[Rfam]
RNA sequence: UGCCGAGGUUUUCCUCGGUAGUUAACUACAGUCGGUUUCUUUAGAAUUCGGCAGUUAAUUGCCGAGGGUAUU
Numbered sequence: 001u002g003c004c005g006a007g008g009u010u011u012u013c014c015u016c017g018g019u020a021g022u023u024a025a026c027u028a029c030a031g032u033c034g035g036u037u038u039c040u041u042u043a044g045a046a047u048u049c050g051g052c053a054g055u056u057a058a059u060u061g062c063c064g065a066g067g068g069u070a071u072u
Base pairs, nucleotide, nucleotide: 012068013067015065016064017063018062019061020060021059022058023057024056025055026054027053029051
Rfam assigns this 72-nucleotide sequence from Medicago truncatula to the family "MIR2629 microRNA precursor family". The base pairs follow the family's consensus structure, which was predicted with RNAalifold. Rfam links the family to the GO terms RISC complex and miRNA-mediated post-transcriptional gene silencing. The organism belongs to Medicago, within Eukaryota.